[Rfam]
RNA sequence: AAGAAGAGAAAACAAAAUGAACGAAGUUCAUUUUCUAUAAAUGUUUCUGACGAAUAGCCGCCAACCAAAUGGAGGGGAAAUGCAUAUA
Numbered sequence: 001a002a003g004a005a006g007a008g009a010a011a012a013c014a015a016a017a018u019g020a021a022c023g024a025a026g027u028u029c030a031u032u033u034u035c036u037a038u039a040a041a042u043g044u045u046u047c048u049g050a051c052g053a054a055u056a057g058c059c060g061c062c063a064a065c066c067a068a069a070u071g072g073a074g075g076g077g078a079a080a081u082g083c084a085u086a087u088a
Base pairs, nucleotide, nucleotide: 008048010046011045012044013043016032017031018030019029020028021027058077059076061075062074065072066071